Shown here is a 99-nucleotide sequence from Dechloromonas sp. HYN0024, a member of the family "c-di-GMP-I riboswitch aptamer".
Rfam links the family to the GO term cyclic-di-GMP binding.
It scores 66 bits against the family's covariance model.
The base pairs follow the family's consensus structure, which is taken from published work.
NCBI's taxonomy places the organism under Bacteria, Pseudomonadota, Betaproteobacteria, Azonexaceae, Dechloromonas.
About the family: GEMM was predicted in a large-scale screen for bacterial structured RNA regulatory elements.
[Rfam]
RNA sequence: GGCCUAAUUUGGCAAACCCGUGCGAAAGCCGGGGACGCAAAGCCACCGGGCUCAGUGAUGAACAGAUUUUAACCAUCACUUGCUAGCGGGGUUGCCGGG
Dot-bracket structure: ...........((...((((.((....))))))...))..((((.((((((....((((...............))))...)))..)))))))......